[Rfam]
RNA: Guanidine-II riboswitch aptamer (mini-ykkC)
Organism: Pseudooceanicola batsensis
RNA sequence: AAGCGAGGACGACCUCGCCCGGCCAGACGGUCAGCACGCGGGACGGCCCGA
Numbered sequence: 001a002a003g004c005g006a007g008g009a010c011g012a013c014c015u016c017g018c019c020c021g022g023c024c025a026g027a028c029g030g031u032c033a034g035c036a037c038g039c040g041g042g043a044c045g046g047c048c049c050g051a
Stems, first nucleotide, its partner, number of pairs: 003018006039050004